Overview
A member of the RNA family "GA-cis RNA", 88 nucleotides long. It is annotated as a small RNA. Pairs were carried over by alignment from the consensus structure, which is taken from published work.
[Rfam]
RNA sequence: UACAGGAGGAAACAAAAUGAACGAAGUUCAUUUUCUAUAAAUGUUUCCGACGAAUAGCCGCUGACCGAAUGGAGAGGCAAUACAGAUU
Numbered sequence: 001u002a003c004a005g006g007a008g009g010a011a012a013c014a015a016a017a018u019g020a021a022c023g024a025a026g027u028u029c030a031u032u033u034u035c036u037a038u039a040a041a042u043g044u045u046u047c048c049g050a051c052g053a054a055u056a057g058c059c060g061c062u063g064a065c066c067g068a069a070u071g072g073a074g075a076g077g078c079a080a081u082a083c084a085g086a087u088u
Base pairs, nucleotide, nucleotide: 008048009047010046011045012044013043016032017031018030019029020028021027057078058077059076061074062073065072066071